[Rfam]
The family of this 67-nucleotide RNA sequence from Gelidibacter mesophilus is "S15-Flavobacteria ribosomal protein leader".
Clan: Ribosomal Protein S15 Leader clan.
Lineage of the source: Bacteria > Pseudomonadati > Bacteroidota > Flavobacteriales > Gelidibacter mesophilus.
The literature on the family includes a 2020 paper in BMC Microbiol by Eckert and Weinberg, "Discovery of 20 novel ribosomal leader candidates in bacteria and archaea".
RNA sequence: UAUCUUUGCACCGUGAUUCGAAAACCGAGUUGCGUACAUAACAAUCAUUUACAAUAAUAUUAGCAUG
Numbered sequence: 001u002a003u004c005u006u007u008g009c010a011c012c013g014u015g016a017u018u019c020g021a022a023a024a025c026c027g028a029g030u031u032g033c034g035u036a037c038a039u040a041a042c043a044a045u046c047a048u049u050u051a052c053a054a055u056a057a058u059a060u061u062a063g064c065a066u067g
Stems, first nucleotide, its partner, number of pairs: 014032006